Rfam assigns this 132-nucleotide RNA sequence from Carlito syrichta to the family "Small nucleolar RNA SNORA69".

RNA sequence: AAAGUAGGCUGCCAUUAUAGUACUUCAUUUUGUGGAAGUACUGUCAUUACCCUGAUGAAAGAAAAGCUGUGUUCAUCAUUUUUUAUUUUGCCUUUAUUAGGUUAAAGUCAUGACAGAUUGACAUGAACAAUU
Number, nucleotide and partner (000 for none) at each position: 001a000002a000003a056004g000005u054006a053007g052008g051009c000010u000011g000012c000013c000014a000015u000016u000017a000018u043019a042020g041021u040022a039023c038024u037025u036026c035027a000028u000029u000030u000031u000032g000033u000034g000035g026036a025037a024038g023039u022040a021041c020042u019043g018044u000045c000046a000047u000048u000049a000050c000051c008052c007053u006054g005055a000056u003057g000058a000059a000060a000061g000062a000063a000064a000065a000066g000067c000068u125069g124070u123071g122072u121073u120074c000075a118076u117077c116078a000079u000080u000081u000082u000083u110084u000085a108086u107087u106088u105089u104090g103091c000092c101093u100094u099095u000096a000097u000098u000099a094100g093101g092102u000103u090104a089105a088106a087107g086108u085109c000110a083111u000112g000113a000114c000115a000116g077117a076118u075119u000120g073121a072122c071123a070124u069125g068126a000127a000128c000129a000130a000131u000132u000
The family's RNA type in Rfam is H/ACA-box small nucleolar RNA. The family has 16 seed sequences and 808 matches in Rfam 15.1. Rfam describes the family as follows. U69 is a member of the H/ACA class of small nucleolar RNAs (snoRNAs) which act as guides in the the modification of uridines to pseudouridines. The family's consensus secondary structure was predicted with PFOLD.